[Rfam]
RNA: Small nucleolar RNA SNORA70
RNA sequence: UUUCUGCCAGUUAAAUCGACUGUGUUCUGUUCCCCAUGGGGGCCUGGUGUGCAACGGCGGCAGACAGCAGCCUUCUUGGUAGUGUAUGCCACCUGUUAUCUGUACAGGUUGCCCUGAGAGACCUUGGAGACAGCC
Numbered sequence: 001u002u003u004c005u006g007c008c009a010g011u012u013a014a015a016u017c018g019a020c021u022g023u024g025u026u027c028u029g030u031u032c033c034c035c036a037u038g039g040g041g042g043c044c045u046g047g048u049g050u051g052c053a054a055c056g057g058c059g060g061c062a063g064a065c066a067g068c069a070g071c072c073u074u075c076u077u078g079g080u081a082g083u084g085u086a087u088g089c090c091a092c093c094u095g096u097u098a099u100c101u102g103u104a105c106a107g108g109u110u111g112c113c114c115u116g117a118g119a120g121a122c123c124u125u126g127g128a129g130a131c132a133g134c135c
Base pairs, nucleotide, nucleotide: 002053004051019048020047021046022045025042026041027040028039078123079122080121089111091109092108093107094106